[Rfam]
Clostridiales-1 RNA: a 172-nucleotide RNA from Lachnoclostridium sp. An14.
It scores 122 bits against the family's covariance model.
RNA sequence: AGAUACCAGGGGAUAAAGUUCAAAACCCCGACGCAAGCUUGCUUGCAGGAGGGAUUUUGAAUUUUAGACCCGCCAAAACCAUGAAUAAGGAGCCGUUUUCGCAGAAAACGAGCGGAUUAUGAAUGGUUUUGCAGGAUUGCGGGAGUGCGGAGCACGGAGCAAUCCGGGAUCC
Numbered sequence: 001a002g003a004u005a006c007c008a009g010g011g012g013a014u015a016a017a018g019u020u021c022a023a024a025a026c027c028c029c030g031a032c033g034c035a036a037g038c039u040u041g042c043u044u045g046c047a048g049g050a051g052g053g054a055u056u057u058u059g060a061a062u063u064u065u066a067g068a069c070c071c072g073c074c075a076a077a078a079c080c081a082u083g084a085a086u087a088a089g090g091a092g093c094c095g096u097u098u099u100c101g102c103a104g105a106a107a108a109c110g111a112g113c114g115g116a117u118u119a120u121g122a123a124u125g126g127u128u129u130u131g132c133a134g135g136a137u138u139g140c141g142g143g144a145g146u147g148c149g150g151a152g153c154a155c156g157g158a159g160c161a162a163u164c165c166g167g168g169a170u171c172c
Stems, first nucleotide, its partner, number of pairs: 002171003006167002011070002014067001017063009027053003032048001033046005075130008085120004092113002094110007134165007145155004
Dot-bracket structure: .(((.((...((.(..(((((((((.(((..((((((....))))).)..))).)))))))))...).))....((((((((..((((...(((((((((...))))))).))...))))..))))))))...(((((((....((((...))))...))))))))).))).
Taxonomically the source falls in Lachnoclostridium (Bacteria, Bacillati, Bacillota, Lachnospirales).